The family of this 54-nucleotide sequence from Danionella cerebrum is "UnaL2 LINE 3' element". On this family, see Baba et al., RNA 2004: "Solution structure of an RNA stem-loop derived from the 3' conserved region of eel LINE UnaL2". Pairs were carried over by alignment from the consensus structure, which is taken from published work. The eel long interspersed element (LINE) UnaL2 and its partner short interspersed element (SINE) share a conserved 3' tail containing a stem-loop that is critical for their retrotransposition. Presumably, the first step of retrotransposition is the recognition of their 3' tails by UnaL2-encoded reverse transcriptase. The solution structure of a 17-nucleotide RNA derived from the 3' tail of UnaL2 was determined by NMR.

RNA sequence: UUUUCCAAGAAAUGUAAGUUGCUUUGGAUAAAAGCAUCUGCCAAAUGCAUAAAA
Numbered sequence: 001u002u003u004u005c006c007a008a009g010a011a012a013u014g015u016a017a018g019u020u021g022c023u024u025u026g027g028a029u030a031a032a033a034g035c036a037u038c039u040g041c042c043a044a045a046u047g048c049a050u051a052a053a054a
Stems, first nucleotide, its partner, number of pairs: 013043001014041003020036006